RNA sequence: AGUACCGUAUGCUCUGCAAUGGGAUGGAAAGCGAAGCCCCAUGAGGGAUAAUAUACGCUCUCACAUCCAAUUACGACACGUCCUCGUCAUGCAGAGUGGUAACGUGUGCCACCACAUAUCCUAGCUUGGGUAUACGGGAUAGAUCCAACCCCUUGGGCGGAUGGUGGCAUAUGGCGAGGGGC
Numbered sequence: 001a002g003u004a005c006c007g008u009a010u011g012c013u014c015u016g017c018a019a020u021g022g023g024a025u026g027g028a029a030a031g032c033g034a035a036g037c038c039c040c041a042u043g044a045g046g047g048a049u050a051a052u053a054u055a056c057g058c059u060c061u062c063a064c065a066u067c068c069a070a071u072u073a074c075g076a077c078a079c080g081u082c083c084u085c086g087u088c089a090u091g092c093a094g095a096g097u098g099g100u101a102a103c104g105u106g107u108g109c110c111a112c113c114a115c116a117u118a119u120c121c122u123a124g125c126u127u128g129g130g131u132a133u134a135c136g137g138g139a140u141a142g143a144u145c146c147a148a149c150c151c152c153u154u155g156g157g158c159g160g161a162u163g164g165u166g167g168c169a170u171a172u173g174g175c176g177a178g179g180g181g182c
Base pairs, nucleotide, nucleotide: 011097012096013095014094015093016092017091022068023067024066025065026064029061074180078090080088082099083098103173104172105171106170107169108168109167110166112164113163118162119161120160121159126148127147128146129145130144131143150157151156